[Rfam]
RNA sequence: CACAUACAAUUGAAAAAUGCUCGUAUAAUGCCGGGGAUAAGGCCCGGAAGUUUCUACCCGGAGACCGUAAAUUUCCGGACUACGAGGGAAUACCGCAAGGGA
Numbered sequence: 001c002a003c004a005u006a007c008a009a010u011u012g013a014a015a016a017a018u019g020c021u022c023g024u025a026u027a028a029u030g031c032c033g034g035g036g037a038u039a040a041g042g043c044c045c046g047g048a049a050g051u052u053u054c055u056a057c058c059c060g061g062a063g064a065c066c067g068u069a070a071a072u073u074u075c076c077g078g079a080c081u082a083c084g085a086g087g088g089a090a091u092a093c094c095g096c097a098a099g100g101g102a
Stems, first nucleotide, its partner, number of pairs: 018088001020086006029049001031047005058078007
Purine riboswitch aptamer: a 102-nucleotide sequence from Paenibacillus dendrobii. NCBI's taxonomy places the organism under Bacteria, Bacilli, Caryophanales, Paenibacillaceae, Paenibacillus. Its family is annotated with purine nucleobase biosynthetic process in the Gene Ontology.